[Rfam]
Rfam assigns this 76-nucleotide sequence from Yinghuangia soli to the family "SAH (S-adenosyl-L-homocysteine) riboswitch aptamer".
The source organism's lineage runs through Bacteria, Actinomycetota, Kitasatosporales, Streptomycetaceae and Yinghuangia.
Its family is annotated with S-adenosylhomocysteine metabolic process and regulation of gene expression in the Gene Ontology.
The family's consensus secondary structure is taken from published work.
It scores 38 bits against the family's covariance model.
RNA sequence: ACGGCCGAGAGGCGCUGCAACGGGUUCCGGCCCGCCACGCUCGGACGUCCGCGACGAACAAGGGCGCCUCCCGACU
Numbered sequence: 001a002c003g004g005c006c007g008a009g010a011g012g013c014g015c016u017g018c019a020a021c022g023g024g025u026u027c028c029g030g031c032c033c034g035c036c037a038c039g040c041u042c043g044g045a046c047g048u049c050c051g052c053g054a055c056g057a058a059c060a061a062g063g064g065c066g067c068c069u070c071c072c073g074a075c076u
Stems, first nucleotide, its partner, number of pairs: 002047002005044004021034005